RNA: Small nucleolar RNA SNORA79
RNA sequence: CGACGUCGGUUCCUCCUCCUGACGGAAGUGUGUCAGGUGGAUUUUACGAUGUCGCAGAGUAACGAGUCUCAUUCACCCAGGGAGCCUCGGGCUGGCCGCAACUACGGAGCCCUGGUUUUGCGAGACUCGACAAAA
Dot-bracket structure: ((((((((.....(((.(.((((........)))).).))).....))))))))..........((((((......((((((..((...((.((....)).))..))..))))))......))))))........